A member of the RNA family "U12 minor spliceosomal RNA" from Schistosoma mattheei, 141 nucleotides long. The family is grouped with related families in Rfam's "U2 clan". Taxonomically the source falls in Schistosoma (Eukaryota, Bilateria, Neodermata, Schistosomatoidea).

[Rfam]
RNA sequence: AUGCCUUAAACUAAUGAGUAAGGAAAAUAGCAGACCGGUUUGAAUUAUCGGUCCCCUAACAUAAUUAGGCCAUUGUUUGCAGGGUAUAGGUUGCCCUGUCGUGUCCCCUACUUAGGGACGUGGCGGCGUUAGCGGCCUGCC
Numbered sequence: 001a002u003g004c005c006u007u008a009a010a011c012u013a014a015u016g017a018g019u020a021a022g023g024a025a026a027a028u029a030g031c032a033g034a035c036c037g038g039u040u041u042g043a044a045u046u047a048u049c050g051g052u053c054c055c056c057u058a059a060c061a062u063a064a065u066u067a068g069g070c071c072a073u074u075g076u077u078u079g080c081a082g083g084g085u086a087u088a089g090g091u092u093g094c095c096c097u098g099u100c101g102u103g104u105c106c107c108c109u110a111c112u113u114a115g116g117g118a119c120g121u122g123g124c125g126g127c128g129u130u131a132g133c134g135g136c137c138u139g140c141c
Base pairs, nucleotide, nucleotide: 004023005022006021007020008019033053034052035051036050037049038048039047055069056068057067058066059065083141084140085139088138089137090136091135092134093133094132097125098124099123100122101121103119104118105117106116107115

Pairs were carried over by alignment from the consensus structure. It scores 70 bits against the family's covariance model.